[Rfam]
RNA sequence: GGUCAUGAGUGCCAGCGCUAAACCCCGGUUUGCUGGCCGGCAACCCUCCACUCGCGGUGGGGUGCCCCGGGUGAAGACCAGGCCCCGUGCCAGCAGGACACGGGACAAGCGCGGGUC
Number, nucleotide and partner (000 for none) at each position: 001g079002g078003u077004c076005a000006u000007g000008a000009g038010u000011g037012c036013c035014a034015g033016c032017g000018c000019u000020a000021a030022a029023c000024c000025c000026c000027g000028g000029u022030u021031u000032g016033c015034u014035g013036g012037c011038c009039g066040g065041c064042a000043a000044c062045c061046c060047u000048c057049c056050a000051c000052u000053c000054g000055c000056g049057g048058u000059g000060g046061g045062g044063u000064g041065c040066c039067c000068c000069g000070g000071g000072u000073g000074a000075a000076g004077a003078c002079c001080a000081g000082g106083c000084c104085c103086c102087g101088u100089g099090c097091c096092a000093g000094c000095a000096g091097g090098a000099c089100a088101c087102g086103g085104g084105a000106c082107a000108a000109g000110c000111g000112c000113g000114g000115g000116u000117c000
This 117-nucleotide RNA from Zafaria cholistanensis belongs to the Rfam family "SAM (S-adenosyl methionine) riboswitch aptamer".
Pairs were carried over by alignment from the consensus structure, which is taken from published work.
Rfam links the family to the GO terms S-adenosylmethionine metabolic process and regulation of gene expression.
The source organism's lineage runs through Bacteria, Actinomycetota, Actinomycetes, Micrococcaceae and Zafaria.